[Rfam]
RNA sequence: GCAGGGAAGAGGAAGAAAGAGAGGUCCUAAGAGCAGUAGGAAUGGGAACAUGAAGGAAUGAGAAUGUUCUAAUUUGUUUUCUAGCAUUAGAGAAUGUUGCAUUCUUGCAUUCCUGAUGCCUCUCAUUCCUAUGGUUCUUAGGUGCUCCUUCCUCUUUCCGUUGCUC
Numbered sequence: 001g002c003a004g005g006g007a008a009g010a011g012g013a014a015g016a017a018a019g020a021g022a023g024g025u026c027c028u029a030a031g032a033g034c035a036g037u038a039g040g041a042a043u044g045g046g047a048a049c050a051u052g053a054a055g056g057a058a059u060g061a062g063a064a065u066g067u068u069c070u071a072a073u074u075u076g077u078u079u080u081c082u083a084g085c086a087u088u089a090g091a092g093a094a095u096g097u098u099g100c101a102u103u104c105u106u107g108c109a110u111u112c113c114u115g116a117u118g119c120c121u122c123u124c125a126u127u128c129c130u131a132u133g134g135u136u137c138u139u140a141g142g143u144g145c146u147c148c149u150u151c152c153u154c155u156u157u158c159c160g161u162u163g164c165u166c
Stems, first nucleotide, its partner, number of pairs: 009157005015151003021147003026142009037131011049118003053114001055113006